[Rfam]
RNA: c-di-GMP-I riboswitch aptamer
RNA sequence: AAACUUAAUAGGCAAACCUAUGGAAACAUAGGGACGCAAAGCUAUAGGGACUACGGCCAAAACUAUUGUCAGCCAGCUGCCAAA
Numbered sequence: 001a002a003a004c005u006u007a008a009u010a011g012g013c014a015a016a017c018c019u020a021u022g023g024a025a026a027c028a029u030a031g032g033g034a035c036g037c038a039a040a041g042c043u044a045u046a047g048g049g050a051c052u053a054c055g056g057c058c059a060a061a062a063c064u065a066u067u068g069u070c071a072g073c074c075a076g077c078u079g080c081c082a083a084a
Stems, first nucleotide, its partner, number of pairs: 012037002017032006040078004047074002049070003056064001